[Rfam]
RNA sequence: GGACGCGGAUUUCGUGAGGCCUCGGUCCGCUCGGCCACUGCUCGCCUGGUGCAUCUUCCCCGGCGCCAGGAGGCAGCGAGCGGGCGGGGACCUGACGGGAUCCGCGGCGGCGG
Numbered sequence: 001g002g003a004c005g006c007g008g009a010u011u012u013c014g015u016g017a018g019g020c021c022u023c024g025g026u027c028c029g030c031u032c033g034g035c036c037a038c039u040g041c042u043c044g045c046c047u048g049g050u051g052c053a054u055c056u057u058c059c060c061c062g063g064c065g066c067c068a069g070g071a072g073g074c075a076g077c078g079a080g081c082g083g084g085c086g087g088g089g090a091c092c093u094g095a096c097g098g099g100a101u102c103c104g105c106g107g108c109g110g111c112g113g
Base pairs, nucleotide, nucleotide: 010100011099012098013097014096015095018092019091021089022088023087025085026084027083028082029081030080031079032078033077038076039075040074041073042072045070046069047068048067049066050065051064052063
Annotation:
The family of this 113-nucleotide RNA from Saccharopolyspora rectivirgula is "mraW RNA". The base pairs follow the family's consensus structure, which is taken from published work. The match comes from Rfam's covariance-model search (50 bits).